[Rfam]
RNA: SAM riboswitch aptamer (S box leader)
RNA sequence: GUCUUAUCAAGAGUGGCGGAGGGACUGGCCCGAUGAAGCCCGGCAACCUGUUUUUACAAGGUGCCAAUUCCCGACAGAUGAGCA
Numbered sequence: 001g002u003c004u005u006a007u008c009a010a011g012a013g014u015g016g017c018g019g020a021g022g023g024a025c026u027g028g029c030c031c032g033a034u035g036a037a038g039c040c041c042g043g044c045a046a047c048c049u050g051u052u053u054u055u056a057c058a059a060g061g062u063g064c065c066a067a068u069u070c071c072c073g074a075c076a077g078a079u080g081a082g083c084a
Stems, first nucleotide, its partner, number of pairs: 003082006013041001015040003021031003025073001027071002042065004047061002049058003069076001
Dot-bracket structure: ..((((((....(.(((...(((.[.[[)))......))))((((.(((((....))).))))))...(]].]..)))))))..